[Rfam]
Nucleotides: 124
Stems, first nucleotide, its partner, number of pairs: 005019005021060003026055007039045001080111006088102006
Number, partner (000 for none) and nucleotide at each position: 001000a002000a003000c004000c005019a006018u007017c008016u009015u010000u011000c012000c013000u014000u015009g016008g017007g018006g019005u020000a021060g022059c023058g024000c025000u026055a027054c028053u029052g030051u031050c032049c033000a034000a035000g036000g037000a038000a039045c040000a041000a042000g043000u044000a045039g046000a047000g048000a049032g050031g051030g052029c053028a054027g055026u056000a057000c058023u059022g060021c061000u062000a063000a064000c065000g066000c067000c068000u069000a070000c071000a072000c073000a074000a075000c076000g077000c078000c079000c080111g081110c082109a083108u084107c085106a086000a087000c088102u089101a090100g091099a092098g093097c094000u095000u096000u097093g098092c099091u100090u101089u102088a103000c104000u105000u106085u107084g108083g109082u110081g111080c112000a113000a114000u115000u116000u117000u118000u119000g120000g121000a122000a123000a124000a
Background: This 124-nucleotide RNA sequence from Microcebus murinus belongs to the Rfam family "U4atac minor spliceosomal RNA". U4atac is an essential component of the minor U12-type spliceosome complex which is required for removal of the rarer class of eukaryotic introns (AT-AC, U12-type). A search with the family's covariance model found it, with a score of 98 bits. A reference for the family is Lorkovic et al. (2005), "Evolutionary conservation of minor U12-type spliceosome between plants and humans", RNA. The family's RNA type in Rfam is spliceosomal small nuclear RNA.